Rfam assigns this 81-nucleotide RNA sequence from Zingiber officinale to the family "Small nucleolar RNA snoR53Y".
A reference for the family is Brown et al. (2001), "Multiple snoRNA gene clusters from Arabidopsis", RNA.
The family's RNA type in Rfam is C/D-box small nucleolar RNA.
The match comes from Rfam's covariance-model search (48 bits).
Its Rfam clan is "snoR53 clan".

RNA sequence: UUUCCCGAUGAUGUUUGUCAUUUUAGCCAUGCUAAUGCUGAAAUACUUUGACGAACCUUCAAUGUCUGUCUUGAGGGAAGU
Number, nucleotide and partner (000 for none) at each position: 001u080002u079003u078004c077005c076006c000007g000008a000009u000010g000011a000012u000013g000014u000015u000016u000017g000018u000019c000020a000021u000022u000023u000024u000025a000026g000027c000028c000029a000030u000031g000032c000033u000034a000035a000036u000037g000038c000039u000040g000041a000042a000043a000044u000045a000046c000047u000048u000049u000050g000051a000052c000053g000054a000055a000056c000057c000058u000059u000060c000061a000062a000063u000064g000065u000066c000067u000068g000069u000070c000071u000072u000073g000074a000075g000076g005077g004078a003079a002080g001081u000